[Rfam]
RNA sequence: AAGAUUUUUUGAUUUCGGUAUCAGUAGAUCUCAUGGUCAUUUAACCUCUUCCUCAUUACCUCGGUUUGUCGCCGAGGUUUUU
Numbered sequence: 001a002a003g004a005u006u007u008u009u010u011g012a013u014u015u016c017g018g019u020a021u022c023a024g025u026a027g028a029u030c031u032c033a034u035g036g037u038c039a040u041u042u043a044a045c046c047u048c049u050u051c052c053u054c055a056u057u058a059c060c061u062c063g064g065u066u067u068g069u070c071g072c073c074g075a076g077g078u079u080u081u082u
Base pairs, nucleotide, nucleotide: 058078059077060076061075062074063073064072065071